[Rfam]
RNA sequence: AGAGCCUGCCUUUCAGGCAUCCUCUCCCAAAAACUUCGAUGACCCGGGCGGUUUCGUCCGGGUCUUUUUUUGCUUCGUU
Numbered sequence: 001a002g003a004g005c006c007u008g009c010c011u012u013u014c015a016g017g018c019a020u021c022c023u024c025u026c027c028c029a030a031a032a033a034c035u036u037c038g039a040u041g042a043c044c045c046g047g048g049c050g051g052u053u054u055c056g057u058c059c060g061g062g063u064c065u066u067u068u069u070u071u072g073c074u075u076c077g078u079u
Base pairs, nucleotide, nucleotide: 008018009017010016011015041064042063043062044061045060046059047058048057049056
RNA: Makes More Granules Regulator RNA (mmgR)